A member of the RNA family "c-di-GMP-I riboswitch aptamer" from Clostridium perfringens, 84 nucleotides long. NCBI's taxonomy places the organism under Bacteria, Bacillati, Clostridia, Clostridiaceae, Clostridium perfringens.
RNA sequence: UUUAAAAUUCGGCAAAAUUAGAGAAAUCUAAUGACGCAAAGCUAUAGGGACUAAGGUUUAUAACUAUGUCAGCCAGUUGCCAAA
Numbered sequence: 001u002u003u004a005a006a007a008u009u010c011g012g013c014a015a016a017a018u019u020a021g022a023g024a025a026a027u028c029u030a031a032u033g034a035c036g037c038a039a040a041g042c043u044a045u046a047g048g049g050a051c052u053a054a055g056g057u058u059u060a061u062a063a064c065u066a067u068g069u070c071a072g073c074c075a076g077u078u079g080c081c082a083a084a
Stems, first nucleotide, its partner, number of pairs: 012037002017032006040078004047074002049070003056064003
The base pairs follow the family's consensus structure, which is taken from published work.